[Rfam]
RNA sequence: UCAUUCACAUGUCCUUAUCACUUUUCCAGCCCGGCUGAUAAUGAUGAAUGUGCUGGACGGAGAACUGAUAAGGAUUUGUGUCUGA
Numbered sequence: 001u002c003a004u005u006c007a008c009a010u011g012u013c014c015u016u017a018u019c020a021c022u023u024u025u026c027c028a029g030c031c032c033g034g035c036u037g038a039u040a041a042u043g044a045u046g047a048a049u050g051u052g053c054u055g056g057a058c059g060g061a062g063a064a065c066u067g068a069u070a071a072g073g074a075u076u077u078g079u080g081u082c083u084g085a
Base pairs, nucleotide, nucleotide: 012074013073014072015071016070017069018068019067020066022064023063024062025061026060027059030056031055
Rfam assigns this 85-nucleotide sequence from Bagarius yarrelli to the family "mir-184 microRNA precursor family".
A search with the family's covariance model found it, with a score of 80 bits.
Lineage of the source: Eukaryota > Eumetazoa > Ostariophysi > Sisorinae > Bagarius.
The family has 66 seed sequences and 948 matches in Rfam 15.1.
The family's consensus secondary structure was predicted with PFOLD.